[Rfam]
RNA sequence: AACUCUCCGCAUUCAUUGUAUGCCUAUAUGUUUAUUUUUUCUAUCAUAAGGCACGCGGUGAAUGCCAAGAGAA
Numbered sequence: 001a002a003c004u005c006u007c008c009g010c011a012u013u014c015a016u017u018g019u020a021u022g023c024c025u026a027u028a029u030g031u032u033u034a035u036u037u038u039u040u041c042u043a044u045c046a047u048a049a050g051g052c053a054c055g056c057g058g059u060g061a062a063u064g065c066c067a068a069g070a071g072a073a
Base pairs, nucleotide, nucleotide: 003071004070005069006068009065010064011063012062013061014060015059016058018056019055023051024050025049027048028047029046030045
A member of the RNA family "mir-124 microRNA precursor family" from Trichonephila clavata, 73 nucleotides long.
The literature on the family includes a 2003 paper in Genome Biol by Lai et al., "Computational identification of Drosophila microRNA genes".
Gene Ontology terms of the family: RISC complex and miRNA-mediated post-transcriptional gene silencing.
The source organism's lineage runs through Eukaryota, Protostomia, Ecdysozoa, Nephilidae and Trichonephila.